[Rfam]
RNA: t44 RNA
Organism: Bowmanella sp. JS7-9
RNA sequence: UAAACAUUAAUUAAAUAACACACAUACAUCGACACGGUUUUCGGGGUGUCCUGAGAAAGGGAUCGAAUAACCGGGAUGUAUGGAGGCCUAAC
Dot-bracket structure: ......................((((((((....(((((((((....(((((......))))))))).))))).))))))))..........